Bacterial large signal recognition particle RNA: a 264-nucleotide sequence from Aneurinibacillus danicus.
The signal recognition particle (SRP) is a universally conserved ribonucleoprotein involved in the co-translational targeting of proteins to membranes.
The family's consensus secondary structure is taken from published work.
It scores 227 bits against the family's covariance model.
Rfam links the family to the GO terms signal recognition particle, plasma membrane targeting and SRP-dependent cotranslational protein targeting to membrane, signal sequence recognition.
[Rfam]
RNA sequence: UCGCACUAGACGGGGAGGUAGCGGUGCCCUGUACCCGCAAUCCGCUGUAGCGGGGUUGAAUUCCUGUCUGAGGUGCGCUUCAUGUGGGGUCAGGUCUGUGUAAGUGGUGUUGAGAGUCGGGUCCUGUGCAACGGGAACCCAUGAACCUGGUCAGGUCCGGAAGGAAGCAGCCAUAAGUGGACCAUCCCGUGUGCCGCAGGGUGGCCUGGCUUGAGCUAACUGCACGGAGCCGCCUGGAUGAACGUAUCGACGGCAGGUGUGCGG
Numbered sequence: 001u002c003g004c005a006c007u008a009g010a011c012g013g014g015g016a017g018g019u020a021g022c023g024g025u026g027c028c029c030u031g032u033a034c035c036c037g038c039a040a041u042c043c044g045c046u047g048u049a050g051c052g053g054g055g056u057u058g059a060a061u062u063c064c065u066g067u068c069u070g071a072g073g074u075g076c077g078c079u080u081c082a083u084g085u086g087g088g089g090u091c092a093g094g095u096c097u098g099u100g101u102a103a104g105u106g107g108u109g110u111u112g113a114g115a116g117u118c119g120g121g122u123c124c125u126g127u128g129c130a131a132c133g134g135g136a137a138c139c140c141a142u143g144a145a146c147c148u149g150g151u152c153a154g155g156u157c158c159g160g161a162a163g164g165a166a167g168c169a170g171c172c173a174u175a176a177g178u179g180g181a182c183c184a185u186c187c188c189g190u191g192u193g194c195c196g197c198a199g200g201g202u203g204g205c206c207u208g209g210c211u212u213g214a215g216c217u218a219a220c221u222g223c224a225c226g227g228a229g230c231c232g233c234c235u236g237g238a239u240g241a242a243c244g245u246a247u248c249g250a251c252g253g254c255a256g257g258u259g260u261g262c263g264g
Base pairs, nucleotide, nucleotide: 001264002263003262004261005260006259009057010056011055012030013029014028015027017025019023034054035053036052037051038050063257064256065255066254067253068252072248073247074246075245076244079242080241081240082239083238085236086235087234088233093230096227097226098225099224100223101222104220105219106217107216108215114212115211116210117209118208119207120206121205122204123200124199125198126197127196128195129191130190132189133188134187135186136185139180140179141178142177148173149172150171151170156165157164158163